Notes
This 52-nucleotide RNA sequence from Norovirus norwalkense belongs to the Rfam family "Norovirus cis-acting replication element (CRE)". The literature on the family includes a 2009 paper in BMC Res Notes by Victoria et al., "Phylogenetic prediction of cis-acting elements: a cre-like sequence in Norovirus genome?". The source organism's lineage runs through Viruses, Caliciviridae, Norovirus norwalkense, Norovirus GII and Norovirus GII.4. The family's RNA type in Rfam is cis-regulatory element. Pairs were carried over by alignment from the consensus structure, which is taken from published work.
RNA sequence: AGCGGCCAUCCACACCACAUGCGAAAAAACGACUGCUGGAACGGGGAGUCCU
Numbered sequence: 001a002g003c004g005g006c007c008a009u010c011c012a013c014a015c016c017a018c019a020u021g022c023g024a025a026a027a028a029a030c031g032a033c034u035g036c037u038g039g040a041a042c043g044g045g046g047a048g049u050c051c052u
Base pairs, nucleotide, nucleotide: 004051005050009045010044011043015039016038017037021036022035023034